[Rfam]
RNA sequence: UUUAUGGCUGAUGCAGCAUCAUCAAGAUUCUCAAGAGACCUAUGGAGAACUUAGAUUUACAUCGAUAAGAGUUCAAAUCCACUUGCACUUUCAUGUGAAUCUUGAUGAUGCUACAUCUGCAAAUGA
Dot-bracket structure: .........((((.((((((((((((((((.((............................................................)).)))))))))))))))).)))).........
Numbered sequence: 001u002u003u004a005u006g007g008c009u010g011a012u013g014c015a016g017c018a019u020c021a022u023c024a025a026g027a028u029u030c031u032c033a034a035g036a037g038a039c040c041u042a043u044g045g046a047g048a049a050c051u052u053a054g055a056u057u058u059a060c061a062u063c064g065a066u067a068a069g070a071g072u073u074c075a076a077a078u079c080c081a082c083u084u085g086c087a088c089u090u091u092c093a094u095g096u097g098a099a100u101c102u103u104g105a106u107g108a109u110g111c112u113a114c115a116u117c118u119g120c121a122a123a124u125g126a
Stems, first nucleotide, its partner, number of pairs: 010117004015112016032095002